This 74-nucleotide sequence from unidentified eubacterium SCB49 belongs to the Rfam family "Flavo-1 RNA".
By type it is a small RNA.
The sequence is in the family's curated seed alignment.
Pairs were carried over by alignment from the consensus structure, which is taken from published work.
RNA sequence: UUGUGUUAGGGAUUGAUGCGGCAUCCUUUUUUGCUUUUUCUGCAAAAAAGAUAUAGCGGAAAGCCCGGUUAUUU
Numbered sequence: 001u002u003g004u005g006u007u008a009g010g011g012a013u014u015g016a017u018g019c020g021g022c023a024u025c026c027u028u029u030u031u032u033g034c035u036u037u038u039u040c041u042g043c044a045a046a047a048a049a050g051a052u053a054u055a056g057c058g059g060a061a062a063g064c065c066c067g068g069u070u071a072u073u074u
Stems, first nucleotide, its partner, number of pairs: 009066003013062002018057002023052003028048007